[Rfam]
RNA sequence: CCGUUUCUCUCUUUGGUUAUCUAGCUGUAUGAGUGCCACAGAGCCGUCAUAAAGCUAGAUAACCGAAAGUAGAAAUGA
Numbered sequence: 001c002c003g004u005u006u007c008u009c010u011c012u013u014u015g016g017u018u019a020u021c022u023a024g025c026u027g028u029a030u031g032a033g034u035g036c037c038a039c040a041g042a043g044c045c046g047u048c049a050u051a052a053a054g055c056u057a058g059a060u061a062a063c064c065g066a067a068a069g070u071a072g073a074a075a076u077g078a
Base pairs, nucleotide, nucleotide: 002077003076004075005074007072008071010069012067013066014065015064016063017062018061019060020059021058022057023056024055025054026053028051029050030049031048032047
Shown here is a 78-nucleotide RNA sequence from Homo sapiens, a member of the family "mir-9/mir-79 microRNA precursor family".
Rfam 15.1 lists 5,647 matches to the family in 934 species.
Pairs were carried over by alignment from the consensus structure, which was predicted with RNAalifold.
It is one of the family's seed sequences.